[Rfam]
RNA sequence: GGGUCGGGAAGGGUGGGGGGUCUCGCCAGCUCCUGUAACCCGCUUGGCGUAAAGCGGGCACCAGUAACUCCUCACCUAUGGGGUUCGCCUCGAAUAGUCCCCAGCGUAGCUAUGAGGGUCGCCCAGUGGGGCUCGACGGCUGUGGAACUCCCUCCGAAGGGAGGGAAGUUACCACACUUACUGGGGGAACCGGCCAGGCCCGGAAGGGAGCAACCGUACCUGGACGUCGGCGUUCACUGGUCUUACGACCUGAGGCGAGUUGGGAAUAAGGCUGUUCGGGGUAGUCCUAUGGGUGAGGAGGGCCGGCCC
Number, nucleotide and partner (000 for none) at each position: 001g309002g308003g307004u306005c305006g304007g303008g000009a000010a000011g000012g062013g061014u060015g059016g034017g033018g032019g031020g030021u029022c000023u000024c000025g000026c000027c000028a000029g021030c020031u019032c018033c017034u016035g000036u000037a000038a000039c058040c057041c056042g055043c054044u053045u000046g000047g000048c000049g000050u000051a000052a000053a044054g043055c042056g041057g040058g039059c015060a014061c013062c012063a000064g000065u000066a000067a000068c300069u299070c298071c297072u296073c295074a294075c293076c292077u291078a290079u289080g288081g000082g286083g285084u284085u000086c000087g282088c281089c280090u279091c278092g277093a276094a275095u274096a273097g272098u271099c000100c264101c263102c262103a261104g260105c259106g000107u257108a000109g000110c254111u253112a000113u000114g000115a000116g251117g250118g249119u248120c247121g246122c000123c240124c239125a238126g237127u236128g235129g234130g233131g231132c230133u000134c229135g228136a227137c226138g225139g178140c000141u176142g175143u174144g173145g172146a170147a169148c168149u166150c165151c164152c163153u162154c161155c160156g000157a000158a000159g000160g155161g154162a153163g152164g151165g150166a149167a000168g148169u147170u146171a000172c145173c144174a143175c142176a141177c000178u139179u000180a000181c223182u222183g221184g000185g220186g219187g000188a000189a000190c000191c216192g215193g214194c000195c000196a000197g000198g000199c208200c207201c206202g000203g000204a000205a000206g201207g200208g199209a000210g000211c000212a000213a000214c193215c192216g191217u000218a000219c186220c185221u183222g182223g181224a000225c138226g137227u136228c135229g134230g132231c131232g000233u130234u129235c128236a127237c126238u125239g124240g123241u000242c000243u000244u000245a000246c121247g120248a119249c118250c117251u116252g000253a111254g110255g000256c000257g107258a000259g105260u104261u103262g102263g101264g100265a000266a000267u000268a000269a000270g000271g098272c097273u096274g095275u094276u093277c092278g091279g090280g089281g088282u087283a000284g084285u083286c082287c000288u080289a079290u078291g077292g076293g075294u074295g073296a072297g071298g070299a069300g068301g000302g000303c007304c006305g005306g004307c003308c002309c001